[Rfam]
RNA sequence: UUAACAGCUGCUGCCUUUUGGCUAAGAUCAAAUGGUAGUGUCUGUUCUUAUCAGCUUAAUAUCUGAUAUGGUCCCUAUUUGGGUGAUGGGCAUCGAUAUUAAACUGAUUUUUAGAACAAGGUGAAGAGUUAGGAGCUUGCUCUGCCUUUUCCACAAGUUUGCCUGGUCUUGCAGUACUUUCAGGAAUCAGCCCAUUUAAC
Dot-bracket structure: .......((...(((....)))..))......................((((((........))))))....(((.....)))....................................((.((((.....((((....))))..)))).))....(((..(((((.............)))))....))).........
A member of the RNA family "U2 spliceosomal RNA" from Octopus sinensis, 200 nucleotides long. The source organism's lineage runs through Eukaryota, Spiralia, Cephalopoda, Coleoidea and Octopus. The family's RNA type in Rfam is spliceosomal small nuclear RNA. The base pairs follow the family's consensus structure, which is taken from published work. A search with the family's covariance model found it, with a score of 112 bits.